[Rfam]
RNA sequence: GAAGCUGACUAGACAGUCGCUGCGUGCUUUGGCACGGAGAGGAAAGUCCGGGCUCCAUAGAGCAGAAUGCCGGUUAACGACCGGAAGCCGUGAGGCUAUGGAAAGUGAUACAGAGACUUAAACCGCCGAUGUAUUGUUUAUACAAUGCAGGUAAGGGUGAAAAGGUGCGGUAAGAGCGCACCGCAGGGCUGGUAACAGCACUGGCAUGUUAAACCCCAUUCGGAGCAAGACCAAAUAGAGGAACGUUAACGUGGCUCGCGUUGUUCCUGGGUAGGUUGCUUGAACGGUUGGGUAACCAAUCGUCUAGAGGAAUGACUGUCCACGACAGAACCCGGCUUAUCGGUCAGCUUCACCC
Numbered sequence: 001g002a003a004g005c006u007g008a009c010u011a012g013a014c015a016g017u018c019g020c021u022g023c024g025u026g027c028u029u030u031g032g033c034a035c036g037g038a039g040a041g042g043a044a045a046g047u048c049c050g051g052g053c054u055c056c057a058u059a060g061a062g063c064a065g066a067a068u069g070c071c072g073g074u075u076a077a078c079g080a081c082c083g084g085a086a087g088c089c090g091u092g093a094g095g096c097u098a099u100g101g102a103a104a105g106u107g108a109u110a111c112a113g114a115g116a117c118u119u120a121a122a123c124c125g126c127c128g129a130u131g132u133a134u135u136g137u138u139u140a141u142a143c144a145a146u147g148c149a150g151g152u153a154a155g156g157g158u159g160a161a162a163a164g165g166u167g168c169g170g171u172a173a174g175a176g177c178g179c180a181c182c183g184c185a186g187g188g189c190u191g192g193u194a195a196c197a198g199c200a201c202u203g204g205c206a207u208g209u210u211a212a213a214c215c216c217c218a219u220u221c222g223g224a225g226c227a228a229g230a231c232c233a234a235a236u237a238g239a240g241g242a243a244c245g246u247u248a249a250c251g252u253g254g255c256u257c258g259c260g261u262u263g264u265u266c267c268u269g270g271g272u273a274g275g276u277u278g279c280u281u282g283a284a285c286g287g288u289u290g291g292g293u294a295a296c297c298a299a300u301c302g303u304c305u306a307g308a309g310g311a312a313u314g315a316c317u318g319u320c321c322a323c324g325a326c327a328g329a330a331c332c333c334g335g336c337u338u339a340u341c342g343g344u345c346a347g348c349u350u351c352a353c354c355c
Stems, first nucleotide, its partner, number of pairs: 001351010011340001012320007020039002023036005044338003048335005053225004060257004065221005070084005085099001086097004100216002105214002107210003123156002125152003130149008164182006183205001184203003188199004229277004239268006248262005284303008